[Rfam]
RNA sequence: GGCGGUGGCCCUUCCUGCCGUGUGACUGGCGUUUCCUCCCUAAACUCGGGCCGUUUCCCCGGGAAACGGCCCAUUUUUUAUUAACG
Numbered sequence: 001g002g003c004g005g006u007g008g009c010c011c012u013u014c015c016u017g018c019c020g021u022g023u024g025a026c027u028g029g030c031g032u033u034u035c036c037u038c039c040c041u042a043a044a045c046u047c048g049g050g051c052c053g054u055u056u057c058c059c060c061g062g063g064a065a066a067c068g069g070c071c072c073a074u075u076u077u078u079u080a081u082u083a084a085c086g
Stems, first nucleotide, its partner, number of pairs: 008030003049071009